Shown here is a 109-nucleotide sequence from Populus alba, a member of the family "MIR480 microRNA precursor family". It scores 42 bits against the family's covariance model. Rfam links the family to the GO terms miRNA-mediated post-transcriptional gene silencing and RISC complex. Taxonomically the source falls in Populus (Eukaryota, Embryophyta, Tracheophyta, Pentapetalae).
RNA sequence: UAAUUUGUUUUGAGCAAAAUCUCAUUUAGUUUUAACAAAACUCAUACCUAAUUGCUUAGAACAAUUUACUAUUAUGUGAACAAUAAUUUUUUAAAAUUAUAAUUAAAAC
Numbered sequence: 001u002a003a004u005u006u007g008u009u010u011u012g013a014g015c016a017a018a019a020u021c022u023c024a025u026u027u028a029g030u031u032u033u034a035a036c037a038a039a040a041c042u043c044a045u046a047c048c049u050a051a052u053u054g055c056u057u058a059g060a061a062c063a064a065u066u067u068a069c070u071a072u073u074a075u076g077u078g079a080a081c082a083a084u085a086a087u088u089u090u091u092u093a094a095a096a097u098u099a100u101a102a103u104u105a106a107a108a109c
Stems, first nucleotide, its partner, number of pairs: 004107004008102002012098001018092002024087002027083001029081003